RNA: MAT2A 3'UTR stem loop F
Nucleotides: 065
Base pairs, nucleotide, nucleotide: 001065002064003063004062005061006060007059010056011055012054014049015048016047019045020044021043022042023041024040025039026032027031
Number, partner (000 for none) and nucleotide at each position: 001065u002064g003063u004062g005061g006060a007059g008000a009000a010056a011055g012054c013000u014049g015048a016047c017000a018000u019045g020044g021043c022042u023041g024040g025039u026032g027031u028000g029000g030000g031027a032026c033000a034000g035000a036000g037000a038000a039025g040024c041023c042022a043021g044020c045019u046000u047016g048015u049014u050000u051000a052000c053000a054012g055011c056010u057000c058000a059007u060006u061005c062004c063003a064002u065001g